[Rfam]
RNA sequence: GGCAUACAACGUCUCCGAGUAUCCCGGCCUACCCCCGGCAUCGGCUUUCGAUCAGCCGCUGACGGGCACGGCAGGGAUACCGCCGAAGCGGCACCUGCGUGUCGCCCAGGCCGGGGCAAACGCCGGAAACGGCCUUGCCUUCCAACUUUCUUGAAAAGGAGCACUCCAGUGCAGACC
Number, nucleotide and partner (000 for none) at each position: 001g000002g000003c171004a170005u000006a000007c000008a000009a000010c000011g000012u000013c161014u160015c159016c158017g000018a000019g080020u079021a078022u077023c076024c075025c074026g000027g072028c071029c070030u000031a000032c000033c000034c066035c065036c064037g000038g000039c000040a000041u000042c000043g000044g000045c000046u000047u000048u000049c000050g000051a000052u000053c000054a000055g000056c000057c000058g000059c000060u000061g000062a000063c000064g036065g035066g034067c000068a000069c000070g029071g028072c027073a000074g025075g024076g023077a022078u021079a020080c019081c000082g111083c110084c109085g000086a000087a000088g000089c000090g000091g000092c000093a000094c000095c000096u000097g000098c000099g000100u000101g000102u000103c000104g000105c000106c000107c000108a000109g084110g083111c082112c000113g000114g140115g139116g138117c137118a136119a135120a000121c000122g133123c132124c131125g130126g000127a000128a000129a000130c125131g124132g123133c122134c000135u119136u118137g117138c116139c115140u114141u154142c153143c000144a000145a000146c000147u000148u000149u000150c000151u000152u000153g142154a141155a000156a000157a000158g016159g015160a014161g013162c000163a000164c000165u000166c000167c000168a000169g000170u004171g003172c000173a000174g000175a000176c000177c000